[Rfam]
RNA: Small nucleolar RNA U109
RNA sequence: UUGCAUGUUAAAAAAUAUUCUGCUCCUUUCCCUUAAGGAGCAUGAAUGUAUCCAUAACAUGCUAGAGGAAAAUAAGGAGUCUUCAGGGCUGCCAGUCUUGAAGACAAGACUGAGUGGUAGUAUGUCUCUCCUACAUUU
Numbered sequence: 001u002u003g004c005a006u007g008u009u010a011a012a013a014a015a016u017a018u019u020c021u022g023c024u025c026c027u028u029u030c031c032c033u034u035a036a037g038g039a040g041c042a043u044g045a046a047u048g049u050a051u052c053c054a055u056a057a058c059a060u061g062c063u064a065g066a067g068g069a070a071a072a073u074a075a076g077g078a079g080u081c082u083u084c085a086g087g088g089c090u091g092c093c094a095g096u097c098u099u100g101a102a103g104a105c106a107a108g109a110c111u112g113a114g115u116g117g118u119a120g121u122a123u124g125u126c127u128c129u130c131c132u133a134c135a136u137u138u
Stems, first nucleotide, its partner, number of pairs: 003062006019044001021042006076131004088118002092114001093112007